About this RNA
A member of the RNA family "Small nucleolar RNA SNORD24" from Thrips palmi, 80 nucleotides long. The family has 14 seed sequences and 2,843 matches in Rfam 15.1.
[Rfam]
RNA sequence: GGAACUGAGGUGAUGAUUGGAUUUAUUUGCUACUCUUAAUGGUUGUGGUGACACACAAUACCACCAAGAUCUCUGAUUCC
Numbered sequence: 001g002g003a004a005c006u007g008a009g010g011u012g013a014u015g016a017u018u019g020g021a022u023u024u025a026u027u028u029g030c031u032a033c034u035c036u037u038a039a040u041g042g043u044u045g046u047g048g049u050g051a052c053a054c055a056c057a058a059u060a061c062c063a064c065c066a067a068g069a070u071c072u073c074u075g076a077u078u079c080c
Base pairs, nucleotide, nucleotide: 001080002079003078004077
Lineage of the source: Eukaryota > Bilateria > Eumetabola > Thysanoptera > Thrips. The family's RNA type in Rfam is C/D-box small nucleolar RNA. Gene Ontology terms of the family: nucleolus and RNA processing. For this family Rfam cites "U24, a novel intron-encoded small nucleolar RNA with two 12 nt long, phylogenetically conserved complementarities to 28S rRNA" (Qu et al., Nucleic Acids Res, 1995).